The family of this 121-nucleotide RNA sequence from Sinorhizobium alkalisoli is "Alphaproteobacterial ar14". Gene Ontology term of the family: biological process involved in symbiotic interaction. The literature on the family includes a 2012 paper in RNA Biol by del Val et al., "A survey of sRNA families in alpha-proteobacteria". It scores 82 bits against the family's covariance model.
RNA sequence: CCUCAUCGAAGCGCUGCACCUCCUCCCGCGGCGCUCGGUGUCGGUCGGUUCACUCCUCCUCCCAAGAGCCGGCCUAGAUUAAAGACCCCGACGCCACCUCCUCCCGGCUCGGGGUCUUUUU
Number, nucleotide and partner (000 for none) at each position: 001c000002c000003u000004c000005a000006u000007c037008g036009a035010a000011g034012c033013g032014c031015u030016g029017c028018a000019c000020c000021u000022c000023c000024u000025c000026c000027c000028g017029c016030g015031g014032c013033g012034c011035u009036c008037g007038g000039u000040g000041u000042c000043g074044g073045u072046c071047g070048g069049u068050u067051c066052a000053c000054u000055c000056c000057u000058c000059c000060u000061c000062c000063c000064a000065a000066g051067a050068g049069c048070c047071g046072g045073c044074c043075u000076a000077g000078a000079u000080u000081a000082a000083a000084g116085a115086c114087c113088c112089c111090g110091a109092c000093g108094c107095c106096a000097c000098c000099u000100c000101c000102u000103c000104c000105c000106g095107g094108c093109u091110c090111g089112g088113g087114g086115u085116c084117u000118u000119u000120u000121u000
Rfam classes the family as a small RNA. Smr14C2 was renamed NfeR1 (Nodule Formation Efficiency RNA) highly expressed in salt stress and during the symbiotic interaction on legume roots.